The record is an 88-nucleotide sequence from Pseudobutyrivibrio xylanivorans, which matches "GA-cis RNA" in Rfam. Pairs were carried over by alignment from the consensus structure, which is taken from published work. The match comes from Rfam's covariance-model search (45 bits).

[Rfam]
RNA sequence: AGAGGGAAGUGCCCUAUGGCGCAGCCAUAAUUUCAAAUGGCACUGACCGACCUCUCAGGAUUGCGGAGCAAUCGUGAGGUUACAUUAG
Numbered sequence: 001a002g003a004g005g006g007a008a009g010u011g012c013c014c015u016a017u018g019g020c021g022c023a024g025c026c027a028u029a030a031u032u033u034c035a036a037a038u039g040g041c042a043c044u045g046a047c048c049g050a051c052c053u054c055u056c057a058g059g060a061u062u063g064c065g066g067a068g069c070a071a072u073c074g075u076g077a078g079g080u081u082a083c084a085u086u087a088g
Stems, first nucleotide, its partner, number of pairs: 008044006015029005054078003059073002063069002